This 514-nucleotide RNA from Botryobasidium botryosum belongs to the Rfam family "RNase MRP".
Gene Ontology terms of the family: ribonuclease MRP activity, rRNA processing and ribonuclease MRP complex.
The family has 66 seed sequences and 3,510 matches in Rfam 15.1.
The family's consensus secondary structure is taken from published work.
Rfam classes the family as a ribozyme.
NCBI's taxonomy places the organism under Eukaryota, Fungi, Dikarya, Agaricomycotina, Botryobasidium botryosum.
RNA sequence: UCGGUGAGCAAAGAAUCGCUUUCGCAGCAUUCGCACAGAAAGCCUCGCGCGCUUUCGCUCUACGCUGUGGGGAAAGUCCCCGGAGACGCCUGCUGCGUGGUCCUGCCCUCGUCCACCCCAAACCCGCCGAGAGGGGAAAGCGGCCGCCAUUAAUUCGGCGGUGGUACUCGGUGGGGGGCGGGGGCCGGUGGUGAAACUUGCAGUCUCUUUUACGAUCGCUUUGCCGUAUCGGAAAGGGCUUCAUCUCGCCAGACCCCAUGCGCUCGCUAUCUUGCUCGCUCAUCACCCAAUUACUCCCCCCUCCCAAGCGCGCCGCCUGUGCUCCCGACGGGCGAAGAUACGAGCUAGCCGAGACACGGUGGAUGCGUGGGGGCUUGAGGAAAAGGUGACGAGGCCCAUCGAGCGAGUGGCACCUUUGUUGCUCAUAGCCGAUAGUUAUGCGAUUGCGGCGCCCUGAGAUACCCCCAGUGGAUAUUUCACGCCGUAACUCAACGGGGCUAACUCUUGCUCAGCG
Numbered sequence: 001u002c003g004g005u006g007a008g009c010a011a012a013g014a015a016u017c018g019c020u021u022u023c024g025c026a027g028c029a030u031u032c033g034c035a036c037a038g039a040a041a042g043c044c045u046c047g048c049g050c051g052c053u054u055u056c057g058c059u060c061u062a063c064g065c066u067g068u069g070g071g072g073a074a075a076g077u078c079c080c081c082g083g084a085g086a087c088g089c090c091u092g093c094u095g096c097g098u099g100g101u102c103c104u105g106c107c108c109u110c111g112u113c114c115a116c117c118c119c120a121a122a123c124c125c126g127c128c129g130a131g132a133g134g135g136g137a138a139a140g141c142g143g144c145c146g147c148c149a150u151u152a153a154u155u156c157g158g159c160g161g162u163g164g165u166a167c168u169c170g171g172u173g174g175g176g177g178g179c180g181g182g183g184g185c186c187g188g189u190g191g192u193g194a195a196a197c198u199u200g201c202a203g204u205c206u207c208u209u210u211u212a213c214g215a216u217c218g219c220u221u222u223g224c225c226g227u228a229u230c231g232g233a234a235a236g237g238g239c240u241u242c243a244u245c246u247c248g249c250c251a252g253a254c255c256c257c258a259u260g261c262g263c264u265c266g267c268u269a270u271c272u273u274g275c276u277c278g279c280u281c282a283u284c285a286c287c288c289a290a291u292u293a294c295u296c297c298c299c300c301c302u303c304c305c306a307a308g309c310g311c312g313c314c315g316c317c318u319g320u321g322c323u324c325c326c327g328a329c330g331g332g333c334g335a336a337g338a339u340a341c342g343a344g345c346u347a348g349c350c351g352a353g354a355c356a357c358g359g360u361g362g363a364u365g366c367g368u369g370g371g372g373g374c375u376u377g378a379g380g381a382a383a384a385g386g387u388g389a390c391g392a393g394g395c396c397c398a399u400c401g402a403g404c405g406a407g408u409g410g411c412a413c414c415u416u417u418g419u420u421g422c423u424c425a426u427a428g429c430c431g432a433u434a435g436u437u438a439u440g441c442g443a444u445u446g447c448g449g450c451g452c453c454c455u456g457a458g459a460u461a462c463c464c465c466c467a468g469u470g471g472a473u474a475u476u477u478c479a480c481g482c483c484g485u486a487a488c489u490c491a492a493c494g495g496g497g498c499u500a501a502c503u504c505u506u507g508c509u510c511a512g513c514g
Stems, first nucleotide, its partner, number of pairs: 002514002005511007014445006022070007038056006075499002078497004091142004143162006306416003312411005321404004330397004380390001383387001447484005